[Rfam]
RNA sequence: GCGUUGAGCAACAUAAAUAUUCGUAUAAUUUCGGGAAUCGGCCCGAAAGUCUCUACAAGGUCACCGUAAUGACCUGGCUACGAUUAAGAAGAGCGAGUUC
Numbered sequence: 001g002c003g004u005u006g007a008g009c010a011a012c013a014u015a016a017a018u019a020u021u022c023g024u025a026u027a028a029u030u031u032c033g034g035g036a037a038u039c040g041g042c043c044c045g046a047a048a049g050u051c052u053c054u055a056c057a058a059g060g061u062c063a064c065c066g067u068a069a070u071g072a073c074c075u076g077g078c079u080a081c082g083a084u085u086a087a088g089a090a091g092a093g094c095g096a097g098u099u100c
Stems, first nucleotide, its partner, number of pairs: 018086002021083005029048007058075006
The family of this 100-nucleotide RNA sequence from Paenibacillus sp. FSL H7-0357 is "Purine riboswitch aptamer".
It scores 66 bits against the family's covariance model.
Rfam's curators write: Riboswitches are metabolite binding domains within certain messenger RNAs that serve as precision sensors for their corresponding targets. Allosteric rearrangement of mRNA structure is mediated by ligand binding, and this results in modulation of gene expression. A class of riboswitches that selectively recognises guanine and becomes saturated at concentrations as low as 5 nM. In Bacillus subtilis, this mRNA motif is located on at least five separate transcriptional units that together encode 17 genes that are mostly involved in purine transport and purine nucleotide biosynthesis. It has also been shown that some members of this family are specific for adenine instead.
The family's consensus secondary structure is taken from published work.